[Rfam]
Shown here is a 208-nucleotide RNA, a member of the family "raiA RNA".
RNA sequence: CGUGUACGGGUCUGUGGUUGAAAGUCGAUGCCAGUCGCAGGCAAAACGAUCCACGUAAGCGGGGGCAAUUCCCGUGAGCAUGGUGCGGUCUAGAUGUAAGUCCAACCGGGUUCGCCCGAGAGGGGUAGUAGUGGGGAGCCACAACGGCUUAUGAGCGAACCUCCCUGUUGGCGUGUGUGGGGGCAAAAACCAGGUCAGCCGUUGCAGG
Number, nucleotide and partner (000 for none) at each position: 001c208002g000003u206004g205005u204006a202007c201008g200009g199010g000011u000012c198013u197014g196015u192016g191017g190018u189019u188020g000021a000022a000023a000024g000025u000026c000027g000028a178029u177030g176031c041032c000033a000034g089035u088036c087037g086038c085039a084040g000041g031042c000043a000044a000045a000046a000047c000048g000049a000050u083051c082052c000053a000054c000055g000056u000057a000058a075059g000060c000061g072062g071063g070064g000065g000066c000067a000068a000069u000070u063071c062072c061073c000074g000075u058076g000077a000078g000079c000080a000081u185082g051083g050084u039085g038086c037087g036088g035089u034090c000091u000092a000093g000094a000095u000096g000097u000098a000099a000100g000101u000102c171103c170104a169105a168106c167107c118108g117109g116110g115111u000112u000113c000114g000115c110116c109117c108118g107119a000120g000121a000122g164123g163124g162125g161126u000127a000128g000129u000130a000131g156132u155133g000134g000135g000136g000137a149138g148139c147140c000141a000142c000143a000144a000145c000146g000147g139148c138149u137150u000151a000152u000153g000154a000155g132156c131157g000158a000159a000160c000161c125162u124163c123164c122165c000166u000167g106168u105169u104170g103171g102172c000173g000174u000175g000176u030177g029178u028179g000180g000181g000182g000183g000184c000185a081186a000187a000188a019189a018190c017191c016192a015193g000194g000195u000196c014197a013198g012199c009200c008201g007202u006203u000204g005205c004206a003207g000208g001

It is annotated as a riboswitch. It is one of the family's seed sequences. The base pairs follow the family's consensus structure, which is taken from published work.